Notes
c-di-AMP riboswitch aptamer (ydaO/yuaA leader): a 150-nucleotide sequence from Paenibacillus selenitireducens.

RNA sequence: GCGUCUUUAUCGCUUAAAUCCCCUACAUGGGGAUACGGGGGAACCAACCGCAGCCUAUGAUGGCUCCGUGGGGUGAAUCUCAAUCUGAGUAGGGCGACUCUCACGCCCGAAUCCGUCAGCUAACCUCGUAAGCGUAUCGAGAGAGGCAAC
Numbered sequence: 001g002c003g004u005c006u007u008u009a010u011c012g013c014u015u016a017a018a019u020c021c022c023c024u025a026c027a028u029g030g031g032g033a034u035a036c037g038g039g040g041g042a043a044c045c046a047a048c049c050g051c052a053g054c055c056u057a058u059g060a061u062g063g064c065u066c067c068g069u070g071g072g073g074u075g076a077a078u079c080u081c082a083a084u085c086u087g088a089g090u091a092g093g094g095c096g097a098c099u100c101u102c103a104c105g106c107c108c109g110a111a112u113c114c115g116u117c118a119g120c121u122a123a124c125c126u127c128g129u130a131a132g133c134g135u136a137u138c139g140a141g142a143g144a145g146g147c148a149a150c
Stems, first nucleotide, its partner, number of pairs: 011134004018034005035129006045070002071114003079089004092108004
Dot-bracket structure: ..........((((...(((((.......)))))((((((....((......................))(((.....((((...))))..((((.........))))...))).........)))))).))))................
Annotation:
The source organism's lineage runs through Bacteria, Bacilli, Caryophanales, Paenibacillaceae and Paenibacillus. Rfam links the family to the GO terms cyclic-di-AMP binding and regulation of gene expression.